Background: A member of the RNA family "Burkholderia RNA 14" from Paraburkholderia acidisoli, 173 nucleotides long. Rfam 15.1 lists 98 matches to the family in 91 species. Pairs were carried over by alignment from the consensus structure, which was predicted with RNAfold. Taxonomically the source falls in Paraburkholderia (Bacteria, Pseudomonadati, Burkholderiales, Burkholderiaceae). It is annotated as a small RNA. From the family's description: Co-purified with Hfq, expression confirmed by Northern blot. Putative functional homologue of PA-SraF. Overlaps coding sequence.

RNA sequence: GUGGGUACCGUCACCGUCCAGCCGAGCACCGUGCCGGUCGUUUCCGAACUGCCGGGCCGCACCAGCGCGUUCCUGGUCGCGCAAGUGCGCGCCCGGGUCGACGGCAUCGUGCUGCGCCGCGAAUUCACCGAAGGCUCGCAAGUGAAGGCGGGUCAGCGUCUUUACAAGAUCGA
Numbered sequence: 001g002u003g004g005g006u007a008c009c010g011u012c013a014c015c016g017u018c019c020a021g022c023c024g025a026g027c028a029c030c031g032u033g034c035c036g037g038u039c040g041u042u043u044c045c046g047a048a049c050u051g052c053c054g055g056g057c058c059g060c061a062c063c064a065g066c067g068c069g070u071u072c073c074u075g076g077u078c079g080c081g082c083a084a085g086u087g088c089g090c091g092c093c094c095g096g097g098u099c100g101a102c103g104g105c106a107u108c109g110u111g112c113u114g115c116g117c118c119g120c121g122a123a124u125u126c127a128c129c130g131a132a133g134g135c136u137c138g139c140a141a142g143u144g145a146a147g148g149c150g151g152g153u154c155a156g157c158g159u160c161u162u163u164a165c166a167a168g169a170u171c172g173a
Stems, first nucleotide, its partner, number of pairs: 004053004009046002013041002016038001018037002021034002023031002056149003061143002065139001067137001069135002072133001074131001079092004094121002097118001099116002102114005157172002159169003